[Rfam]
About this RNA: The record is a 167-nucleotide RNA sequence from Paenalicyclobacillus ferrooxydans, which matches "M-box riboswitch aptamer (ykoK leader)" in Rfam. Lineage of the source: Bacteria > Bacillati > Bacillota > Alicyclobacillaceae > Paenalicyclobacillus. The match comes from Rfam's covariance-model search (134 bits). For this family Rfam cites "New RNA motifs suggest an expanded scope for riboswitches in bacterial genetic control" (Barrick et al., Proc Natl Acad Sci U S A, 2004).

RNA sequence: ACGAGUCCUCGUUAGGCGAGGCGUCUAUGCGAACAUACGCCACUGCCCAGAAACGUCGAAAGACGCCAACGGGUUUGAACAGGUACUGCCGGCUUAAGGCUUUACUUAAUGUGGUUGAGGGGUUCCUCUGGUCGUAUAGUGCCAAAGCUCAACUUGGGGGGAUAUCG
Dot-bracket structure: ....(((((((([.(((..(((..((((((((......(((((.((((.....((((....)))).....)))).......((((..(((......])))..))))....))))).(((......)))...)))))))).)))...)))..))....))))))....